The record is a 62-nucleotide RNA sequence, which matches "pemK RNA" in Rfam. The family's consensus secondary structure is taken from published work. It is annotated as a cis-regulatory element.
RNA sequence: AUAAUGAUACACCCGUAUGACACGGUUCGCCCAUCAGAAUGGGAAAGGUGAAAGUCCUGUGG
Numbered sequence: 001a002u003a004a005u006g007a008u009a010c011a012c013c014c015g016u017a018u019g020a021c022a023c024g025g026u027u028c029g030c031c032c033a034u035c036a037g038a039a040u041g042g043g044a045a046a047g048g049u050g051a052a053a054g055u056c057c058u059g060u061g062g
Base pairs, nucleotide, nucleotide: 012059013025014024015023016022026045027044028043030042031041046058047057048056